[Rfam]
The record is a 61-nucleotide sequence from Amazonocrinis nigriterrae, which matches "Nitrogen stress-induced RNA 1" in Rfam. Taxonomically the source falls in Amazonocrinis nigriterrae (Bacteria, Cyanobacteriota, Cyanophyceae, Nostocales).
RNA sequence: UAGUAAAUGCACCCUGAUAAUUAACUCCUCUGGUUGGCUGCCACCGCUGGGGGAUUUUUCU
Numbered sequence: 001u002a003g004u005a006a007a008u009g010c011a012c013c014c015u016g017a018u019a020a021u022u023a024a025c026u027c028c029u030c031u032g033g034u035u036g037g038c039u040g041c042c043a044c045c046g047c048u049g050g051g052g053g054a055u056u057u058u059u060c061u
Stems, first nucleotide, its partner, number of pairs: 003012002027053007035046003